Shown here is a 36-nucleotide RNA, a member of the family "DUF805b RNA".
Rfam's curators put it in the seed alignment.
By type it is a cis-regulatory element.
Pairs were carried over by alignment from the consensus structure, which is taken from published work.
RNA sequence: AAGGCGAAUCCCGAAAAGCCUGUGACAGAGUAGGGA
Numbered sequence: 001a002a003g004g005c006g007a008a009u010c011c012c013g014a015a016a017a018g019c020c021u022g023u024g025a026c027a028g029a030g031u032a033g034g035g036a
Stems, first nucleotide, its partner, number of pairs: 002021004010035003